[Rfam]
RNA sequence: GCUGGGCAUGGUGGUGCGCACCUAUAAUUCCAGCUACUGAGGAGGCUGAGGCUGGAGAAUCUCUUGAGUUCAGGACUUCUGACCUGCAGCGGGCUAAGCUGAUCAGGCAUUUGCACUAAAUUCAGCAUUCGUAUGGUGAACCUCCAGAAGUGGAGGGCCAUCGGAUUGUCUAAGCUGGGGCAAACCAGCCCAAGUCAGAAAUGGAACAGAUCAAAACUUCUGUGCUAAUCAGAAUGGGAUCAAGUCCAUGAGUGGCCCCUGCACAUCCAGCUUGGGUGAGAUAGGAAGAUCCAGUCUUUA
Numbered sequence: 001g002c003u004g005g006g007c008a009u010g011g012u013g014g015u016g017c018g019c020a021c022c023u024a025u026a027a028u029u030c031c032a033g034c035u036a037c038u039g040a041g042g043a044g045g046c047u048g049a050g051g052c053u054g055g056a057g058a059a060u061c062u063c064u065u066g067a068g069u070u071c072a073g074g075a076c077u078u079c080u081g082a083c084c085u086g087c088a089g090c091g092g093g094c095u096a097a098g099c100u101g102a103u104c105a106g107g108c109a110u111u112u113g114c115a116c117u118a119a120a121u122u123c124a125g126c127a128u129u130c131g132u133a134u135g136g137u138g139a140a141c142c143u144c145c146a147g148a149a150g151u152g153g154a155g156g157g158c159c160a161u162c163g164g165a166u167u168g169u170c171u172a173a174g175c176u177g178g179g180g181c182a183a184a185c186c187a188g189c190c191c192a193a194g195u196c197a198g199a200a201a202u203g204g205a206a207c208a209g210a211u212c213a214a215a216a217c218u219u220c221u222g223u224g225c226u227a228a229u230c231a232g233a234a235u236g237g238g239a240u241c242a243a244g245u246c247c248a249u250g251a252g253u254g255g256c257c258c259c260u261g262c263a264c265a266u267c268c269a270g271c272u273u274g275g276g277u278g279a280g281a282u283a284g285g286a287a288g289a290u291c292c293a294g295u296c297u298u299u300a
Stems, first nucleotide, its partner, number of pairs: 001046003004023003009018002028043003048298009060287001062285003068277007079270002081267002085263005091257001093256004099250001106246003110242001111238002114236002117233001122228001124226005129168001131166002134163005141156006170174001177220004188211001190209001195204003
Rfam assigns this 300-nucleotide RNA sequence from Vombatus ursinus to the family "Metazoan signal recognition particle RNA". From the family's description: The signal recognition particle (SRP) is a universally conserved ribonucleoprotein. It is involved in the co-translational targeting of proteins to membranes. The eukaryotic SRP consists of a 300-nucleotide 7S RNA and six proteins: SRPs 72, 68, 54, 19, 14, and 9. Archaeal SRP consists of a 7S RNA and homologues of the eukaryotic SRP19 and SRP54 proteins. Eukaryotic and archaeal 7S RNAs have very similar secondary structures, as represented by this family. Eight helical elements fold into the Alu and S domains, separated by a long linker region. The Alu domain is thought to mediate the peptide chain elongation retardation function of the SRP. The universally conserved helix which interacts with the SRP54 M domain mediates signal sequence recognition. In eukaryotes and archaea, the SRP19-helix 6 complex is thought to be involved in SRP assembly and stabilises helix 8 for SRP54 binding. The Signal Recognition Particle Database (SRPDB) provides compilations of SRP components, with phylogenetic data and structural illustrations. Many sequences below the threshold for this family are clearly closely related, but are most likely to be SRP RNA derived pseudogenes. The human genome in particular is known to contain a large amount of SRP RNA related sequence, including Alu repeats. While the threshold of this family is set high so as to minimise the number of hits to such regions, it is likely that some remain. It scores 128 bits against the family's covariance model. The base pairs follow the family's consensus structure, which is taken from published work. Taxonomically the source falls in Vombatus (Eukaryota, Eumetazoa, Vertebrata, Sarcopterygii). The literature on the family includes a 2002 paper in Curr Opin Struct Biol by Wild et al., "Towards the structure of the mammalian signal recognition particle".